[Rfam]
RNA sequence: AGGGUUCCGACAGGAGCGGCCUUGGAUCACAUGUGGGCAGCACCCAAUGUGCUUCAUGUGUUCUCAGGUCGCCCCUGCCGGGCUUCC
Numbered sequence: 001a002g003g004g005u006u007c008c009g010a011c012a013g014g015a016g017c018g019g020c021c022u023u024g025g026a027u028c029a030c031a032u033g034u035g036g037g038c039a040g041c042a043c044c045c046a047a048u049g050u051g052c053u054u055c056a057u058g059u060g061u062u063c064u065c066a067g068g069u070c071g072c073c074c075c076u077g078c079c080g081g082g083c084u085u086c087c
Stems, first nucleotide, its partner, number of pairs: 007081002011077004016072004024064003028060005
RNA: MIR398 microRNA precursor family